Shown here is a 76-nucleotide sequence from Kibdelosporangium phytohabitans, a member of the family "6C RNA".
The match comes from Rfam's covariance-model search (75 bits).
The family's RNA type in Rfam is cis-regulatory element.
Rfam links the family to the GO term sporulation.
RNA sequence: GCCGGUUCAGUCCGACCCCCCGGGACUGAACCUAUCGACGACCCCCGUCCCUCCCCCCUGGCGGGGGUCGUCCCUU
Numbered sequence: 001g002c003c004g005g006u007u008c009a010g011u012c013c014g015a016c017c018c019c020c021c022g023g024g025a026c027u028g029a030a031c032c033u034a035u036c037g038a039c040g041a042c043c044c045c046c047g048u049c050c051c052u053c054c055c056c057c058c059u060g061g062c063g064g065g066g067g068u069c070g071u072c073c074c075u076u
Stems, first nucleotide, its partner, number of pairs: 004032010037072013